[Rfam]
Shown here is a 427-nucleotide RNA sequence from Ruegeria sp. TM1040, a member of the family "Bacterial RNase P class A". Rfam's curators put it in the seed alignment. NCBI's taxonomy places the organism under Bacteria, Pseudomonadati, Pseudomonadota, Rhodobacterales, Ruegeria.
RNA sequence: GCAGAGAGCCGGAUGGCCGCGUUGGGGCAUCUGCCCCCGCGAGGAAAGUCCGGACUCCCUGAAACGACGGUGCCGGGUAACGCCCGGGCAGGGCAACCUGACGGAAAGCGCCACAGAAAAGAGACCGCCUCGCCGCUCUGGAGGUUCGCCAAAGGAUGCGACGGGGUAAGGAUGAAACGGUGGGGUAAGAGCCCACCGCACCGCUGGCAACAGGGGUGGCACGGCAAGCCCCACCGGGAGCAAUGCCAAAUAGGGCCUCCGCGCGGGCAGGUCGGGCAACCGAAACCGCCGCUAGGGAUGUUUCACCCGAGAGAGGCCGGGUUGGCAGCUAGAGAUGUCCGGCAACGGGCAUCCCAGAAGAAUGGUCAUCGAACCCUGUCUUUUGGGGCAGGGGGAACAAGAUCCGGCUUAUAGGCUCUCUGCGCAA
Numbered sequence: 001g002c003a004g005a006g007a008g009c010c011g012g013a014u015g016g017c018c019g020c021g022u023u024g025g026g027g028c029a030u031c032u033g034c035c036c037c038c039g040c041g042a043g044g045a046a047a048g049u050c051c052g053g054a055c056u057c058c059c060u061g062a063a064a065c066g067a068c069g070g071u072g073c074c075g076g077g078u079a080a081c082g083c084c085c086g087g088g089c090a091g092g093g094c095a096a097c098c099u100g101a102c103g104g105a106a107a108g109c110g111c112c113a114c115a116g117a118a119a120a121g122a123g124a125c126c127g128c129c130u131c132g133c134c135g136c137u138c139u140g141g142a143g144g145u146u147c148g149c150c151a152a153a154g155g156a157u158g159c160g161a162c163g164g165g166g167u168a169a170g171g172a173u174g175a176a177a178c179g180g181u182g183g184g185g186u187a188a189g190a191g192c193c194c195a196c197c198g199c200a201c202c203g204c205u206g207g208c209a210a211c212a213g214g215g216g217u218g219g220c221a222c223g224g225c226a227a228g229c230c231c232c233a234c235c236g237g238g239a240g241c242a243a244u245g246c247c248a249a250a251u252a253g254g255g256c257c258u259c260c261g262c263g264c265g266g267g268c269a270g271g272u273c274g275g276g277c278a279a280c281c282g283a284a285a286c287c288g289c290c291g292c293u294a295g296g297g298a299u300g301u302u303u304c305a306c307c308c309g310a311g312a313g314a315g316g317c318c319g320g321g322u323u324g325g326c327a328g329c330u331a332g333a334g335a336u337g338u339c340c341g342g343c344a345a346c347g348g349g350c351a352u353c354c355c356a357g358a359a360g361a362a363u364g365g366u367c368a369u370c371g372a373a374c375c376c377u378g379u380c381u382u383u384u385g386g387g388g389c390a391g392g393g394g395g396a397a398c399a400a401g402a403u404c405c406g407g408c409u410u411a412u413a414g415g416c417u418c419u420c421u422g423c424g425c426a427a
Stems, first nucleotide, its partner, number of pairs: 001423010011412001012370007020041003024037005046410003050407005055240004064303001066301001068236005073087005088102001089100004103231002108229002110225003125171002127167006134160002179197006198220001199218004204213003244327004254318006296308002299305001334353008